[Rfam]
RNA sequence: CAUUAAGUUCUCUAGGGUUCCGCUGUGAGCCGCAGGACUGGACCGAGAGAGAACGCGCUGAGGUUUGGAUGAAAGCCUUGGCGGCACGGAGGGACAAAAGCCCGGGAGAU
Numbered sequence: 001c002a003u004u005a006a007g008u009u010c011u012c013u014a015g016g017g018u019u020c021c022g023c024u025g026u027g028a029g030c031c032g033c034a035g036g037a038c039u040g041g042a043c044c045g046a047g048a049g050a051g052a053a054c055g056c057g058c059u060g061a062g063g064u065u066u067g068g069a070u071g072a073a074a075g076c077c078u079u080g081g082c083g084g085c086a087c088g089g090a091g092g093g094a095c096a097a098a099a100g101c102c103c104g105g106g107a108g109a110u
Base pairs, nucleotide, nucleotide: 007054008053009052010051011050012049015044016043020041021040022038023035024034025033026032027031056083057082058081059080060079061078062077063076064075065074066073085105087108091103092102093101

Guanidine-I riboswitch aptamer: a 110-nucleotide RNA from Insulibacter thermoxylanivorax. On this family, see Trachman RJ 3rd and Ferre-D'Amare, RNA 2021: "An uncommon [K(+)(Mg(2+))2] metal ion triad imparts stability and selectivity to the Guanidine-I riboswitch". Lineage of the source: Bacteria > Bacillota > Caryophanales > Paenibacillaceae > Insulibacter. A search with the family's covariance model found it, with a score of 83 bits.